Rfam assigns this 114-nucleotide RNA from Sphaerimonospora thailandensis to the family "TPP riboswitch aptamer (THI element)". Rfam links the family to the GO term thiamine pyrophosphate binding. Lineage of the source: Bacteria > Actinomycetota > Actinomycetes > Streptosporangiaceae > Sphaerimonospora.
RNA sequence: CGUAAGACGCGCGGGAGCCCGGCCGUUCCGGGCUGAGAGGAGAGCGGAAGGCUCUCGACCGCCAGACGACCUGAUCCGGGUAAUGCCGGCGAAGGGAGCGGGCAGUGCCUGAGC
Numbered sequence: 001c002g003u004a005a006g007a008c009g010c011g012c013g014g015g016a017g018c019c020c021g022g023c024c025g026u027u028c029c030g031g032g033c034u035g036a037g038a039g040g041a042g043a044g045c046g047g048a049a050g051g052c053u054c055u056c057g058a059c060c061g062c063c064a065g066a067c068g069a070c071c072u073g074a075u076c077c078g079g080g081u082a083a084u085g086c087c088g089g090c091g092a093a094g095g096g097a098g099c100g101g102g103c104a105g106u107g108c109c110u111g112a113g114c
Stems, first nucleotide, its partner, number of pairs: 008100003011062004017033005040056005070095003076089004